Shown here is a 164-nucleotide sequence from Streptomyces sp. NWU339, a member of the family "c-di-AMP riboswitch aptamer (ydaO/yuaA leader)".
The family has 106 seed sequences and 7,607 matches in Rfam 15.1.
[Rfam]
RNA sequence: UCGAUCAACUCACUCACGCACGGCAGGAGCGGGGGACCCAGGUAAGUCGCCGGACCGGUUCGCACCGGGACGGCUCGGGGUGAAGCCAUGCCCUCAGGGGCGCGGCCGGGCACUCUCCCGCCCGAACCCGACAGCUCACCUCGUAGGCGUAGGAGAGGAACGCA
Numbered sequence: 001u002c003g004a005u006c007a008a009c010u011c012a013c014u015c016a017c018g019c020a021c022g023g024c025a026g027g028a029g030c031g032g033g034g035g036a037c038c039c040a041g042g043u044a045a046g047u048c049g050c051c052g053g054a055c056c057g058g059u060u061c062g063c064a065c066c067g068g069g070a071c072g073g074c075u076c077g078g079g080g081u082g083a084a085g086c087c088a089u090g091c092c093c094u095c096a097g098g099g100g101c102g103c104g105g106c107c108g109g110g111c112a113c114u115c116u117c118c119c120g121c122c123c124g125a126a127c128c129c130g131a132c133a134g135c136u137c138a139c140c141u142c143g144u145a146g147g148c149g150u151a152g153g154a155g156a157g158g159a160a161c162g163c164a
Base pairs, nucleotide, nucleotide: 001146005028006027029144030143031142032141033140034139039077078129079128080127086105087104089102090101091100108123109122110121111120